rpsB sRNA: a 103-nucleotide RNA sequence from Micavibrio aeruginosavorus.
A search with the family's covariance model found it, with a score of 50 bits.
NCBI's taxonomy places the organism under Bacteria, Bdellovibrionia, Pseudobdellovibrionaceae, Micavibrio, Micavibrio aeruginosavorus.
RNA sequence: CACAUGCGGGGAUUGGGAUUCGUCAUUUUGGCGCUCCCUCCGGUGUUUUUGAAUGGUUCAAAAAUCACGCUCCGCAGAGGUUAAACCGGAAAAAAGGACGUAA
Dot-bracket structure: (.(.(((((((...((....((.(......)))...)).......(((((((.....))))))).....)))))))).)........................